Listeria sRNA rli38: a 145-nucleotide RNA sequence from Streptococcus pyogenes.
The organism belongs to Streptococcus pyogenes serotype M28, within Bacteria.
The base pairs follow the family's consensus structure, which was predicted with RNAalifold.
RNA sequence: CUUAAAUAAGAAGCAGAUAGCAAUUUGAGAGCGAAAUCCCGAUUUAUCAGUCUUUUAGAGCUUAUAGCGAUUUGAAGAAACUGAUAAAAUGAUUUGGUUUUUUGCCAAAAAUCCUGCCAAAAAAAUCUUUGGCAGGAUUUUUAUU
Numbered sequence: 001c002u003u004a005a006a007u008a009a010g011a012a013g014c015a016g017a018u019a020g021c022a023a024u025u026u027g028a029g030a031g032c033g034a035a036a037u038c039c040c041g042a043u044u045u046a047u048c049a050g051u052c053u054u055u056u057a058g059a060g061c062u063u064a065u066a067g068c069g070a071u072u073u074g075a076a077g078a079a080a081c082u083g084a085u086a087a088a089a090u091g092a093u094u095u096g097g098u099u100u101u102u103u104g105c106c107a108a109a110a111a112u113c114c115u116g117c118c119a120a121a122a123a124a125a126u127c128u129u130u131g132g133c134a135g136g137a138u139u140u141u142u143a144u145u
Base pairs, nucleotide, nucleotide: 008102009101010100011099012098044087045086046085047084048083049082050081053079055077056076059073109141110140111139112137113136114135115134116133117132118131119130120129121128